[Rfam]
RNA: Bacterial RNase P class A
Organism: Sedimenticola thiotaurini
RNA sequence: GGAGUCGGCCGGAUGGUCGCUGCUUUUCAAUAAAGCGGAGGAAAGUCCGGGCUCCGAUGGGCAGGGUGCCAGGUAACGCCUGGGAGGCGCGAGCCUACGGAAAGUGCCACAGAAAAUAUACCGCCACCGGUCUACGGGCUGGCUGGUAAGGGUGAAAUGGUGCGGUAAGAGCGCACCGCGCGACUGGCAACAGUCGUGGCAGGGUAAACCCCACCCGGAGCAAGACCAAAUAGGGGGGCAGGCAGCCUCGGUUGCCACGUGUGGCCCGCACGGUCCCCGGGUAGGUCGCUUGAGGUGCGCGGUGACGCGCAUCCCAGAUGAAUGGCCAUUCAAGACAGAACCCGGCUUACAGGCCGACUCCCCAU
Numbered sequence: 001g002g003a004g005u006c007g008g009c010c011g012g013a014u015g016g017u018c019g020c021u022g023c024u025u026u027u028c029a030a031u032a033a034a035g036c037g038g039a040g041g042a043a044a045g046u047c048c049g050g051g052c053u054c055c056g057a058u059g060g061g062c063a064g065g066g067u068g069c070c071a072g073g074u075a076a077c078g079c080c081u082g083g084g085a086g087g088c089g090c091g092a093g094c095c096u097a098c099g100g101a102a103a104g105u106g107c108c109a110c111a112g113a114a115a116a117u118a119u120a121c122c123g124c125c126a127c128c129g130g131u132c133u134a135c136g137g138g139c140u141g142g143c144u145g146g147u148a149a150g151g152g153u154g155a156a157a158u159g160g161u162g163c164g165g166u167a168a169g170a171g172c173g174c175a176c177c178g179c180g181c182g183a184c185u186g187g188c189a190a191c192a193g194u195c196g197u198g199g200c201a202g203g204g205u206a207a208a209c210c211c212c213a214c215c216c217g218g219a220g221c222a223a224g225a226c227c228a229a230a231u232a233g234g235g236g237g238g239c240a241g242g243c244a245g246c247c248u249c250g251g252u253u254g255c256c257a258c259g260u261g262u263g264g265c266c267c268g269c270a271c272g273g274u275c276c277c278c279g280g281g282u283a284g285g286u287c288g289c290u291u292g293a294g295g296u297g298c299g300c301g302g303u304g305a306c307g308c309g310c311a312u313c314c315c316a317g318a319u320g321a322a323u324g325g326c327c328a329u330u331c332a333a334g335a336c337a338g339a340a341c342c343c344g345g346c347u348u349a350c351a352g353g354c355c356g357a358c359u360c361c362c363c364a365u
Base pairs, nucleotide, nucleotide: 001361002360003359004358005357006356007355008354009353010352011350012330013329014328015327016326017325018324020038021037022036023035024034025033026032043348044347045346047345048344049343050342051341052220053219054218055217059267060266061265062264064216065215066214067213068212069083070082071081072080073079084098085096086095087094088093099211100210104209105208106205107204108203121151122150123147124146125145127142128141129140130139131138132137159177160176161175162174163173164172178200179198180197181196182195183194184193185192186191224287225286226285227284234278235277236276237275238274239273258272259271260270261269262268294313295312296311297310298309299308300307301306